Overview:
Rfam assigns this 83-nucleotide sequence from Mus musculus to the family "mir-1893 microRNA precursor family". The organism belongs to Mus, within Eukaryota. The base pairs follow the family's consensus structure, which was predicted with RNAalifold. Rfam links the family to the GO terms miRNA-mediated post-transcriptional gene silencing and RISC complex.
RNA sequence: CCAGAGCGGAGAGGUAUCUGCUGCGCCUGAGAUGAGUAAACUGUCGUUUCGGGCGCGGGCGCUGGACGCCUCGAAGCCGCUGC
Numbered sequence: 001c002c003a004g005a006g007c008g009g010a011g012a013g014g015u016a017u018c019u020g021c022u023g024c025g026c027c028u029g030a031g032a033u034g035a036g037u038a039a040a041c042u043g044u045c046g047u048u049u050c051g052g053g054c055g056c057g058g059g060c061g062c063u064g065g066a067c068g069c070c071u072c073g074a075a076g077c078c079g080c081u082g083c
Stems, first nucleotide, its partner, number of pairs: 005081005011072005017066004021058015